The family of this 155-nucleotide sequence from Thioalbus denitrificans is "FMN riboswitch aptamer (RFN element)". NCBI's taxonomy places the organism under Bacteria, Pseudomonadati, Pseudomonadota, Chromatiales, Thioalbus. Rfam's curators write: The RFN element is a highly conserved domain that is found frequently in the 5'-untranslated regions of prokaryotic mRNAs that encode for flavin mononucleotide (FMN) biosynthesis and transport proteins. This element is a metabolite-dependent riboswitch that directly binds FMN in the absence of proteins. In Bacillus subtilis, the riboswitch most likely controls gene expression by causing premature transcription termination within the 5' untranslated region of the ribDEAHT operon and precluding access to the ribosome-binding site of ypaA mRNA.The FMN riboswitch structure, reported in present an FMN-bound six-stem junction, adopts a butterfly-like scaffold, stapled together by opposingly directed but nearly identically folded peripheral domains. Its family is annotated with FMN binding in the Gene Ontology. The base pairs follow the family's consensus structure, which is taken from published work.

RNA sequence: CUACGUCUUCAGGGCGGGGUGGAAGUCCCCACCGGCGGUAGGGCCGCAAUCCGCGGCCGAGCCCGCGAGCGCCCGUGUCAGCCAUGACGCGGGGUCCAGCAGAUCCGGUGAGAUGCCGGAGCCGACGGUUACAGUCCGGAUGGAAGAAGACGCUG
Dot-bracket structure: ...(((((((......(((.......))).[[((((((......................[[))))..((............................))...(((((.......)))))]])).(((.....]]))).......)))))))...